Shown here is a 96-nucleotide sequence from Rhododendron simsii, a member of the family "Small nucleolar RNA snoR100". By type it is an H/ACA-box small nucleolar RNA. The family's consensus secondary structure was predicted with WAR. On this family, see Marker et al., Curr Biol 2002: "Experimental RNomics: identification of 140 candidates for small non-messenger RNAs in the plant Arabidopsis thaliana". NCBI's taxonomy places the organism under Eukaryota, Streptophytina, Spermatophyta, Magnoliopsida, Rhododendron.
RNA sequence: CAAUGAACGAAGCAUGGUAAUGUGCACAUAAAUUGAAUUGGGUCUCUAGGCCUGCCAUUUGGCUUUGAUUUGGGAGCAUGGUUCUACAACAAAACG
Numbered sequence: 001c002a003a004u005g006a007a008c009g010a011a012g013c014a015u016g017g018u019a020a021u022g023u024g025c026a027c028a029u030a031a032a033u034u035g036a037a038u039u040g041g042g043u044c045u046c047u048a049g050g051c052c053u054g055c056c057a058u059u060u061g062g063c064u065u066u067g068a069u070u071u072g073g074g075a076g077c078a079u080g081g082u083u084c085u086a087c088a089a090c091a092a093a094a095c096g
Stems, first nucleotide, its partner, number of pairs: 012025004040079001042077002050069001052067001054063003